The family of this 78-nucleotide RNA sequence from Myripristis murdjan is "mir-17 microRNA precursor family". A search with the family's covariance model found it, with a score of 65 bits. Its family is annotated with miRNA-mediated post-transcriptional gene silencing and RISC complex in the Gene Ontology. Rfam 15.1 lists 4,687 matches to the family in 648 species. The base pairs follow the family's consensus structure, which was predicted with RNAalifold. This family represents the microRNA (miRNA) precursor mir-17, family, which includes mir-20, mir-91, and mir-103. miRNAs are transcribed as ~70nt precursors (modelled here) and subsequently processed by the Dicer enzyme to give a ~22nt product. In this case the mature sequence comes from the 3' arm of the precursor.
[Rfam]
RNA sequence: CUGGCAGUUCCAAAGUGCUCACAGUGCAGGUAGUACACAACACAUCUACUGCAGUAUGUGCACUUCAGGUACUUCUGG
Numbered sequence: 001c002u003g004g005c006a007g008u009u010c011c012a013a014a015g016u017g018c019u020c021a022c023a024g025u026g027c028a029g030g031u032a033g034u035a036c037a038c039a040a041c042a043c044a045u046c047u048a049c050u051g052c053a054g055u056a057u058g059u060g061c062a063c064u065u066c067a068g069g070u071a072c073u074u075c076u077g078g
Stems, first nucleotide, its partner, number of pairs: 004075001006073002010069002013065006020058002023055001025053003029050005